[Rfam]
RNA sequence: UAGCUUUGUCCUAAGUCAAAACUUUUUUUAGCUUUGAUCAGGUUUGUAGAAAAAAUGUAUUAAUAUCUACAGUAUCAAGUAAAUACACUGUAAUACUAUCAAAAUAUAUUCAUGGUGCAUUUAAUGAAUCUCGUUUGAUGAUGUAGAUGUUUGUACAUUUUUCUAUAAACUUAGUCAAAGUUAGACAAGUUUAACUUAGGACAAAACUAA
Numbered sequence: 001u002a003g004c005u006u007u008g009u010c011c012u013a014a015g016u017c018a019a020a021a022c023u024u025u026u027u028u029u030a031g032c033u034u035u036g037a038u039c040a041g042g043u044u045u046g047u048a049g050a051a052a053a054a055a056u057g058u059a060u061u062a063a064u065a066u067c068u069a070c071a072g073u074a075u076c077a078a079g080u081a082a083a084u085a086c087a088c089u090g091u092a093a094u095a096c097u098a099u100c101a102a103a104a105u106a107u108a109u110u111c112a113u114g115g116u117g118c119a120u121u122u123a124a125u126g127a128a129u130c131u132c133g134u135u136u137g138a139u140g141a142u143g144u145a146g147a148u149g150u151u152u153g154u155a156c157a158u159u160u161u162u163c164u165a166u167a168a169a170c171u172u173a174g175u176c177a178a179a180g181u182u183a184g185a186c187a188a189g190u191u192u193a194a195c196u197u198a199g200g201a202c203a204a205a206a207c208u209a210a
Base pairs, nucleotide, nucleotide: 005205006204007203008202009201011199012198013197014196015195016194018192019191021190022189023188024187026185027184033179034178035177036176037175047165048164049163050162051161052160053159054158058155059154060153062151063150064149065148066147067146068145069144070143071142075138076137077136078135079134080133
RNA: MIR1435 microRNA precursor family